Shown here is an 87-nucleotide RNA from Pteropus vampyrus, a member of the family "Small nucleolar RNA SNORD35". The family's consensus secondary structure was predicted with PFOLD. Its Rfam clan is "SNORD35 clan". NCBI's taxonomy places the organism under Eukaryota, Eumetazoa, Amniota, Laurasiatheria, Pteropus. The match comes from Rfam's covariance-model search (74 bits). Gene Ontology terms of the family: RNA processing and nucleolus. Rfam describes the family as follows. U35 is a C/D box snoRNA located in intron 6 of ribosomal protein L13A and intron 3 of ribosomal protein S11 in humans and at homologous positions in mouse and chicken ribosomal protein genes.

RNA sequence: GGCAGAUGAUGGCUUUUUCUCGCAAUGGUCUGUGGAUGCCAUUGUGGGCAGUGCUAAUAAUGCCAAUGGCUUAGCUGAUGCCAGGAG
Numbered sequence: 001g002g003c004a005g006a007u008g009a010u011g012g013c014u015u016u017u018u019c020u021c022g023c024a025a026u027g028g029u030c031u032g033u034g035g036a037u038g039c040c041a042u043u044g045u046g047g048g049c050a051g052u053g054c055u056a057a058u059a060a061u062g063c064c065a066a067u068g069g070c071u072u073a074g075c076u077g078a079u080g081c082c083a084g085g086a087g
Stems, first nucleotide, its partner, number of pairs: 001082004